[Rfam]
RNA sequence: CACUCUGGAGAGCGGCGUAAAUCGCCCACCGAAGGGGCUAACAAAGUAGAUCACCAGAUCCGCUUUGGAAUCUCUCAGGUACCAAGGACAGAGGG
Number, nucleotide and partner (000 for none) at each position: 001c095002a000003c093004u092005c091006u090007g089008g000009a000010g000011a000012g000013c000014g026015g025016c024017g023018u000019a000020a000021a000022u000023c017024g016025c015026c014027c000028a080029c079030c078031g076032a075033a000034g000035g074036g073037g072038c000039u000040a000041a000042c067043a066044a065045a064046g063047u062048a000049g000050a000051u000052c000053a000054c000055c000056a000057g000058a000059u000060c000061c000062g047063c046064u045065u044066u043067g042068g000069a000070a000071u000072c037073u036074c035075u032076c031077a000078g030079g029080u028081a000082c000083c000084a000085a000086g000087g000088a000089c007090a006091g005092a004093g003094g000095g001

This 95-nucleotide RNA from Iodobacter ciconiae belongs to the Rfam family "Glycine riboswitch aptamer". Rfam links the family to the GO term glycine biosynthetic process. It scores 48 bits against the family's covariance model.